[Rfam]
RNA: Small nucleolar RNA SNORA11
Organism: Octodon degus
RNA sequence: GGGGUGUGCUCAGAGCAGGGCGCCUGAAAUGGCUUCUCUGUUUACAACACACCCAAUGGGAAUUUAGGGACAUGGUGACAAGGGACACAAAACGCGUGACUUCUCUGUGAGCAAAUGUGCUGCACAU
Numbered sequence: 001g002g003g004g005u006g007u008g009c010u011c012a013g014a015g016c017a018g019g020g021c022g023c024c025u026g027a028a029a030u031g032g033c034u035u036c037u038c039u040g041u042u043u044a045c046a047a048c049a050c051a052c053c054c055a056a057u058g059g060g061a062a063u064u065u066a067g068g069g070a071c072a073u074g075g076u077g078a079c080a081a082g083g084g085a086c087a088c089a090a091a092a093c094g095c096g097u098g099a100c101u102u103c104u105c106u107g108u109g110a111g112c113a114a115a116u117g118u119g120c121u122g123c124a125c126a127u
Base pairs, nucleotide, nucleotide: 002054003053004052005051006050007049008048013043014042015041016040017039018038019037020036022033023032024031067120069118075112076111079109080108082102083101084100086098087097088096